[Rfam]
The record is a 343-nucleotide RNA sequence from Aspergillus calidoustus, which matches "A. fumigatus sRNA Afu_309" in Rfam.
The base pairs follow the family's consensus structure, which was predicted with WAR.

RNA sequence: CUCAACAGAACACAAACGGAUCUGUGUUCGGCGAUCCUGGUCGUGAGAGCGUCUUUCCCUUUGGGAAUCUCGUCUUUUUGCGUAUCGGUUGAUUGCUGGACAGUUCGACGACCACGGAGGCACUACUUUUCUUACAUUUGGUGUCAACAUUUUCCGGUCGACAGAUCUCAGAUCAAAUGUUGGCAUGGGGUGUUCACUCUGGUCUUGAGCUCCCUUUUGUUUUCGGACGAUUGGUGAGCUCGGCUGGAGAGCCUUGUGUCAACGGCGUCAUAUUCCUGUUCCCUUUACCGAUCAUGGCCGUCGGCUGAUGAGGUUAGGGAUAAACCAUGACUGGCCAACAUCA
Dot-bracket structure: .................((((((((((((((.(((((((((((.(((((.....((((....)))).......)))))..)).)))))..)))).)))))).......(((((..((.(.(..................).).))..........)))))))))))))..........(.(...((((((..........((((..((((((((..................)).))))))))))......))))))).)...((((((((........(((((..(((......((((...)))).....))).)))))......)))))..))).......
Numbered sequence: 001c002u003c004a005a006c007a008g009a010a011c012a013c014a015a016a017c018g019g020a021u022c023u024g025u026g027u028u029c030g031g032c033g034a035u036c037c038u039g040g041u042c043g044u045g046a047g048a049g050c051g052u053c054u055u056u057c058c059c060u061u062u063g064g065g066a067a068u069c070u071c072g073u074c075u076u077u078u079u080g081c082g083u084a085u086c087g088g089u090u091g092a093u094u095g096c097u098g099g100a101c102a103g104u105u106c107g108a109c110g111a112c113c114a115c116g117g118a119g120g121c122a123c124u125a126c127u128u129u130u131c132u133u134a135c136a137u138u139u140g141g142u143g144u145c146a147a148c149a150u151u152u153u154c155c156g157g158u159c160g161a162c163a164g165a166u167c168u169c170a171g172a173u174c175a176a177a178u179g180u181u182g183g184c185a186u187g188g189g190g191u192g193u194u195c196a197c198u199c200u201g202g203u204c205u206u207g208a209g210c211u212c213c214c215u216u217u218u219g220u221u222u223u224c225g226g227a228c229g230a231u232u233g234g235u236g237a238g239c240u241c242g243g244c245u246g247g248a249g250a251g252c253c254u255u256g257u258g259u260c261a262a263c264g265g266c267g268u269c270a271u272a273u274u275c276c277u278g279u280u281c282c283c284u285u286u287a288c289c290g291a292u293c294a295u296g297g298c299c300g301u302c303g304g305c306u307g308a309u310g311a312g313g314u315u316a317g318g319g320a321u322a323a324a325c326c327a328u329g330a331c332u333g334g335c336c337a338a339c340a341u342c343a
Stems, first nucleotide, its partner, number of pairs: 018168008026101006033094004037088005042082002045078005055066004109160005116145002119142001121140001179260001181258001185257006201245004207241006213234002264336003267331005280320005287314003296306004
A search with the family's covariance model found it, with a score of 246 bits. Rfam classes the family as a small RNA. The literature on the family includes a 2008 paper in Nucleic Acids Res by Jochl et al., "Small ncRNA transcriptome analysis from Aspergillus fumigatus suggests a novel mechanism for regulation of protein synthesis".